Overview: This 133-nucleotide RNA from Roseomonas acroporae belongs to the Rfam family "TPP riboswitch aptamer (THI element)". Lineage of the source: Bacteria > Pseudomonadati > Pseudomonadota > Roseomonadaceae > Roseomonas. The match comes from Rfam's covariance-model search (55 bits).

RNA sequence: CGCCGUUCCGAGGGGAGCCCCGGCAAGGGGCUGAGACACCGAUGCGCGGCGGGGCCCGGCCCCGUUCGCGGCGCGGAGACCCUUCGAACCUGAUCCGGGUCAUGCCGGCGAAGGGACGGACGCUCCGACACCC
Numbered sequence: 001c002g003c004c005g006u007u008c009c010g011a012g013g014g015g016a017g018c019c020c021c022g023g024c025a026a027g028g029g030g031c032u033g034a035g036a037c038a039c040c041g042a043u044g045c046g047c048g049g050c051g052g053g054g055c056c057c058g059g060c061c062c063c064g065u066u067c068g069c070g071g072c073g074c075g076g077a078g079a080c081c082c083u084u085c086g087a088a089c090c091u092g093a094u095c096c097g098g099g100u101c102a103u104g105c106c107g108g109c110g111a112a113g114g115g116a117c118g119g120a121c122g123c124u125c126c127g128a129c130a131c132c133c
Base pairs, nucleotide, nucleotide: 007120008119009118010117011083012082013081014080017031018030019029020028021027039076040075041074089114090113091112095108096107097106098105